[Rfam]
RNA sequence: UUCUUAUCAAGAGAAGUGGAGGGACUGGCCCUUUGAAGCUUCGGCAACAGACCUAUAUGGGUACUGUGCUAAAUCCUGCAAGCUUGCAAGCUUGAUAGAUAAGAA
Numbered sequence: 001u002u003c004u005u006a007u008c009a010a011g012a013g014a015a016g017u018g019g020a021g022g023g024a025c026u027g028g029c030c031c032u033u034u035g036a037a038g039c040u041u042c043g044g045c046a047a048c049a050g051a052c053c054u055a056u057a058u059g060g061g062u063a064c065u066g067u068g069c070u071a072a073a074u075c076c077u078g079c080a081a082g083c084u085u086g087c088a089a090g091c092u093u094g095a096u097a098g099a100u101a102a103g104a105a
Stems, first nucleotide, its partner, number of pairs: 001105008013042005021031003025078001027076002043070004048066002050062001052060002074097001079094006
About this RNA
Rfam assigns this 105-nucleotide RNA sequence from Gracilibacillus halotolerans to the family "SAM riboswitch aptamer (S box leader)". Gene Ontology term of the family: regulation of gene expression. Rfam's curators write: The SAM riboswitch is found upstream of a number of genes which code for proteins involved in methionine or cysteine biosynthesis in Gram-positive bacteria.